Rfam assigns this 115-nucleotide RNA from Gordonia iterans to the family "SAM (S-adenosyl methionine) riboswitch aptamer". Rfam's curators write: SAM-IV is a mRNA element that regulates gene expression via direct sensing of S-adenosylmethionine (SAM or AdoMet). SAM-IV riboswitches share conserved nucleotide positions with the previously described SAM-I riboswitches sequence analysis and molecular recognition experiments suggest that SAM-I and SAM-IV riboswitches share similar ligand binding sites, but have different scaffolds. The match comes from Rfam's covariance-model search (112 bits).
RNA sequence: GGUCACGAGUGCCAGCGACAAGCCCCGGCUAGCUGGUCGGCAACCCUCCUUCGCGGCGGGGUGCUCCGGGUGACGACCUGGCCGCCGGCCGACCGGCCCGCGGCAAGCGCGAAUU
Numbered sequence: 001g002g003u004c005a006c007g008a009g010u011g012c013c014a015g016c017g018a019c020a021a022g023c024c025c026c027g028g029c030u031a032g033c034u035g036g037u038c039g040g041c042a043a044c045c046c047u048c049c050u051u052c053g054c055g056g057c058g059g060g061g062u063g064c065u066c067c068g069g070g071u072g073a074c075g076a077c078c079u080g081g082c083c084g085c086c087g088g089c090c091g092a093c094c095g096g097c098c099c100g101c102g103g104c105a106a107g108c109g110c111g112a113a114u115u
Stems, first nucleotide, its partner, number of pairs: 001078004009038001011037006021030002039065003044061003048056002081104005087098004